[Rfam]
About this RNA:
This 127-nucleotide sequence from Myotis brandtii belongs to the Rfam family "mir-9193 microRNA precursor family". Rfam links the family to the GO terms RISC complex and miRNA-mediated post-transcriptional gene silencing.

RNA sequence: CGUGCACCGGAGGGGUCCCUCGGCCUGGCCUGCCCCCUCUCGCAAUCCGGGACCACUCGGGGGAUGUCGAAGAGCUGGUUUCGGCCUGAUUCCCACAGGCCAGGCUGAGGGACCCCACCGGUGCACA
Numbered sequence: 001c002g003u004g005c006a007c008c009g010g011a012g013g014g015g016u017c018c019c020u021c022g023g024c025c026u027g028g029c030c031u032g033c034c035c036c037c038u039c040u041c042g043c044a045a046u047c048c049g050g051g052a053c054c055a056c057u058c059g060g061g062g063g064a065u066g067u068c069g070a071a072g073a074g075c076u077g078g079u080u081u082c083g084g085c086c087u088g089a090u091u092c093c094c095a096c097a098g099g100c101c102a103g104g105c106u107g108a109g110g111g112a113c114c115c116c117a118c119c120g121g122u123g124c125a126c127a
Stems, first nucleotide, its partner, number of pairs: 003125002006122001008120003012116014027101006
NCBI's taxonomy places the organism under Eukaryota, Teleostomi, Mammalia, Chiroptera, Myotis.